[Rfam]
Source information: S10-Clostridia ribosomal protein leader: a 71-nucleotide RNA from Vescimonas coprocola. A search with the family's covariance model found it, with a score of 41 bits. The family's RNA type in Rfam is cis-regulatory leader.
RNA sequence: CAAAUGCGAUGAACCGGGAGAUUGCUCCGAGAGGAGGUAACUUCCGGGGAGUAUGUCCGAUCAUCGGGCGG
Dot-bracket structure: .............(((.(((....((((....)))).....))))))........((.(.((...)).)))